[Rfam]
RNA: Mammalian CPEB3 ribozyme
RNA sequence: AGUGUUUGAGACUGCAGCAGAAGCGCUCAUGGCGCUUGUCAGAUUCCAAUGGAGCUGCAAAUUCUGCU
Dot-bracket structure: ..........[....((((((((((.......)))]...(((.(((....))).)))....)))))))
Numbered sequence: 001a002g003u004g005u006u007u008g009a010g011a012c013u014g015c016a017g018c019a020g021a022a023g024c025g026c027u028c029a030u031g032g033c034g035c036u037u038g039u040c041a042g043a044u045u046c047c048a049a050u051g052g053a054g055c056u057g058c059a060a061a062u063u064c065u066g067c068u
Stems, first nucleotide, its partner, number of pairs: 011036001016068007023035003040057003044053003